[Rfam]
This 376-nucleotide sequence from Mucilaginibacter ginkgonis belongs to the Rfam family "Bacterial RNase P class A". The source organism's lineage runs through Bacteria, Bacteroidota, Sphingobacteriia, Sphingobacteriaceae and Mucilaginibacter. A search with the family's covariance model found it, with a score of 254 bits. By type it is a ribozyme. About the family: Ribonuclease P (RNase P) is a ubiquitous endoribonuclease, found in archaea, bacteria and eukarya as well as chloroplasts and mitochondria. A reference for the family is Frank and Pace (1998), "Ribonuclease P: unity and diversity in a tRNA processing ribozyme", Annu Rev Biochem. Pairs were carried over by alignment from the consensus structure, which is taken from published work.
RNA sequence: GCUGCAAACCGUUCUGUCGCUGCCGUUCAUCCGGCAGAGGAAAGUCCGGGCAACACAGGGCAUCCUGCUUCCUAACGGGAAGGGGUCGUACCAGCCGGCUACAGCAAGUGCCACAGAAAAUAAACCGCCCGUUUCAGGAUGGGUAAGGGUGAAAACGUGAGGUAAGAGCUCACGGCUUUUACGGGCGACCGUAAUUGCGGUAAACCUCAGGAGUUGAAAAACCAAAUAGGUCUCAAUUGAAAAGCGGCCCGCUUUAUGUGUUUCGGCACGGUUGAGAUGGGUAGGUUGAUAGAGCCGUGCAGCAAUGUACGGACCAGAUCAAUGACAGAAUAUCCGCAAGGAUACACAGAACCCGGCUUACAGGUUUGCUGCUGGU
Numbered sequence: 001g002c003u004g005c006a007a008a009c010c011g012u013u014c015u016g017u018c019g020c021u022g023c024c025g026u027u028c029a030u031c032c033g034g035c036a037g038a039g040g041a042a043a044g045u046c047c048g049g050g051c052a053a054c055a056c057a058g059g060g061c062a063u064c065c066u067g068c069u070u071c072c073u074a075a076c077g078g079g080a081a082g083g084g085g086u087c088g089u090a091c092c093a094g095c096c097g098g099c100u101a102c103a104g105c106a107a108g109u110g111c112c113a114c115a116g117a118a119a120a121u122a123a124a125c126c127g128c129c130c131g132u133u134u135c136a137g138g139a140u141g142g143g144u145a146a147g148g149g150u151g152a153a154a155a156c157g158u159g160a161g162g163u164a165a166g167a168g169c170u171c172a173c174g175g176c177u178u179u180u181a182c183g184g185g186c187g188a189c190c191g192u193a194a195u196u197g198c199g200g201u202a203a204a205c206c207u208c209a210g211g212a213g214u215u216g217a218a219a220a221a222c223c224a225a226a227u228a229g230g231u232c233u234c235a236a237u238u239g240a241a242a243a244g245c246g247g248c249c250c251g252c253u254u255u256a257u258g259u260g261u262u263u264c265g266g267c268a269c270g271g272u273u274g275a276g277a278u279g280g281g282u283a284g285g286u287u288g289a290u291a292g293a294g295c296c297g298u299g300c301a302g303c304a305a306u307g308u309a310c311g312g313a314c315c316a317g318a319u320c321a322a323u324g325a326c327a328g329a330a331u332a333u334c335c336g337c338a339a340g341g342a343u344a345c346a347c348a349g350a351a352c353c354c355g356g357c358u359u360a361c362a363g364g365u366u367u368g369c370u371g372c373u374g375g376u
Stems, first nucleotide, its partner, number of pairs: 001372002004369007011361001012330007020037006042359003046356005051216004059264002063212005068082005083102001084100004103207002108205002110201003125148002127144007156174006179194006220287004230278006295312007